[Rfam]
RNA sequence: GACAACGCGGGAAGCUUUGACGCACGGUCCCCAACCCGGUCGCCUUUGGACCGUGCCGAGCGAGUGGCGAGACCGCCCCGCGAUCGG
Number, nucleotide and partner (000 for none) at each position: 001g000002a000003c000004a084005a000006c082007g081008c080009g079010g078011g077012a000013a000014g061015c060016u000017u000018u000019g000020a000021c000022g056023c055024a054025c053026g052027g051028u050029c049030c000031c000032c000033a000034a000035c000036c000037c000038g074039g073040u070041c069042g068043c067044c066045u000046u000047u000048g000049g029050a028051c027052c026053g025054u024055g023056c022057c000058g000059a000060g015061c014062g000063a000064g000065u000066g044067g043068c042069g041070a040071g000072a000073c039074c038075g000076c000077c011078c010079c009080g008081c007082g006083a000084u004085c000086g000087g000
Rfam assigns this 87-nucleotide RNA sequence to the family "c-di-GMP-II-GAG riboswitch aptamer". Its family is annotated with regulation of gene expression and cyclic-di-GMP binding in the Gene Ontology. The family's consensus secondary structure is taken from published work. Clan: c-di-GMP_II riboswitch clan.